[Rfam]
The family of this 106-nucleotide RNA from Arthrobacter terricola is "Glycine riboswitch aptamer". The source organism's lineage runs through Bacteria, Bacillati, Actinomycetota, Micrococcaceae and Arthrobacter. It scores 36 bits against the family's covariance model.
RNA sequence: CAACUCUGGAAAGCAGCCCGGGAAACCGGACUCACCGACGGUGCAAGCGCCCCGUUGCUUCGGCAACCGACGCGGAAACUCUCAGGUCCAAUACAGAGCGGGGAGG
Numbered sequence: 001c002a003a004c005u006c007u008g009g010a011a012a013g014c015a016g017c018c019c020g021g022g023a024a025a026c027c028g029g030a031c032u033c034a035c036c037g038a039c040g041g042u043g044c045a046a047g048c049g050c051c052c053c054g055u056u057g058c059u060u061c062g063g064c065a066a067c068c069g070a071c072g073c074g075g076a077a078a079c080u081c082u083c084a085g086g087u088c089c090a091a092u093a094c095a096g097a098g099c100g101g102g103g104a105g106g
Stems, first nucleotide, its partner, number of pairs: 001101001004098005015032002018029001034087003037083002041081001043079001048074002
Dot-bracket structure: (..(((((......((.(..........).)).(((((..(.(....((.......................))....).))).)))......)))))..).....